[Rfam]
RNA sequence: ACUCCCCAACAAUGGGCAAAGAGACACUUUGUUGGUGGUGGUCUUCUUAUAUCAGCCAGGCACAGAGCAGAUGUCAGUCUUCUGUUCUCCUAGCUUGAUGCCUGGCUUUGUUGCCAAAGCUGUUUUAUGUCUAGGACUCAUAA
Numbered sequence: 001a002c003u004c005c006c007c008a009a010c011a012a013u014g015g016g017c018a019a020a021g022a023g024a025c026a027c028u029u030u031g032u033u034g035g036u037g038g039u040g041g042u043c044u045u046c047u048u049a050u051a052u053c054a055g056c057c058a059g060g061c062a063c064a065g066a067g068c069a070g071a072u073g074u075c076a077g078u079c080u081u082c083u084g085u086u087c088u089c090c091u092a093g094c095u096u097g098a099u100g101c102c103u104g105g106c107u108u109u110g111u112u113g114c115c116a117a118a119g120c121u122g123u124u125u126u127a128u129g130u131c132u133a134g135g136a137c138u139c140a141u142a143a
Base pairs, nucleotide, nucleotide: 003062005060006059013054014053015052019048020047021046023042025040026039027038028037084137085136086135087134088133097131098130099129103127104126105125109122110121112119
This 143-nucleotide RNA sequence from Mus musculus belongs to the Rfam family "Small nucleolar RNA SNORA48". Clan: SNORA48 clan. It scores 60 bits against the family's covariance model. From the family's description: The snoRNA ACA 48 has been identified to guide pseudouridylation of the residue U3797 in the 28S rRNA subunit. The literature on the family includes a 1997 paper in J Mol Biol by Ofengand and Bakin, "Mapping to nucleotide resolution of pseudouridine residues in large subunit ribosomal RNAs from representative eukaryotes, prokaryotes, archaebacteria, mitochondria and chloroplasts".